The record is a 179-nucleotide sequence from Streptomyces glaucescens, which matches "c-di-AMP riboswitch aptamer (ydaO/yuaA leader)" in Rfam.
The base pairs follow the family's consensus structure.
RNA sequence: UCGCGUCAAGCGCCGCAGGCAGGAGCGGGGGACCCAAGGUUAGUGCCGGGUCCGGUGGCCGAGGAGACUCGACGCCGGCACCGGCUAGGGGUGAAGCCGCAGCCCGUGAGGGCCGCGGCCGGGCAACUCAACCGGCCCGAACCCGACAGCUCACCUCGUAGGCGUCGGUGAGGGGAUCG
Numbered sequence: 001u002c003g004c005g006u007c008a009a010g011c012g013c014c015g016c017a018g019g020c021a022g023g024a025g026c027g028g029g030g031g032a033c034c035c036a037a038g039g040u041u042a043g044u045g046c047c048g049g050g051u052c053c054g055g056u057g058g059c060c061g062a063g064g065a066g067a068c069u070c071g072a073c074g075c076c077g078g079c080a081c082c083g084g085c086u087a088g089g090g091g092u093g094a095a096g097c098c099g100c101a102g103c104c105c106g107u108g109a110g111g112g113c114c115g116c117g118g119c120c121g122g123g124c125a126a127c128u129c130a131a132c133c134g135g136c137c138c139g140a141a142c143c144c145g146a147c148a149g150c151u152c153a154c155c156u157c158g159u160a161g162g163c164g165u166c167g168g169u170g171a172g173g174g175g176a177u178c179g
Base pairs, nucleotide, nucleotide: 011164012163013162014161025159026158027157028156029155030154035088089144090143091142097118098117099116100115121138122137123136124135
The match comes from Rfam's covariance-model search (60 bits).